[Rfam]
RNA sequence: UGGGUGGUAUCCUUAGGGAACUGCACUGUUUUAUUAUAUUCAACAAGAUUAAUUUUGACUUUAUAUCAAUAUCUGCUCAUAUCACAAUGAAUGAGACUACUAU
Numbered sequence: 001u002g003g004g005u006g007g008u009a010u011c012c013u014u015a016g017g018g019a020a021c022u023g024c025a026c027u028g029u030u031u032u033a034u035u036a037u038a039u040u041c042a043a044c045a046a047g048a049u050u051a052a053u054u055u056u057g058a059c060u061u062u063a064u065a066u067c068a069a070u071a072u073c074u075g076c077u078c079a080u081a082u083c084a085c086a087a088u089g090a091a092u093g094a095g096a097c098u099a100c101u102a103u
Stems, first nucleotide, its partner, number of pairs: 001028003004024005010019002075097001076095005082090003
RNA: pan motif